[Rfam]
Nucleotides: 074
Stems, first nucleotide, its partner, number of pairs: 006068002009065004022057010
Number, partner (000 for none) and nucleotide at each position: 001000c002000a003000u004000g005000c006068g007067g008000a009065c010064c011063g012062g013000g014000c015000c016000c017000c018000u019000c020000u021000g022057g023056c024055g025054c026053g027052g028051c029050g030049c031048u032000u033000u034000u035000g036000c037000c038000u039000u040000c041000g042000g043000g044000c045000c046000c047000u048031a049030g050029c051028g052027c053026u054025g055024c056023g057022u058000g059000a060000u061000g062012u063011c064010g065009g066000a067007c068006c069000g070000c071000a072000u073000c074000g
Shown here is a 74-nucleotide RNA sequence from Aurantiacibacter luteus, a member of the family "terC RNA". Lineage of the source: Bacteria > Pseudomonadati > Pseudomonadota > Sphingomonadales > Aurantiacibacter.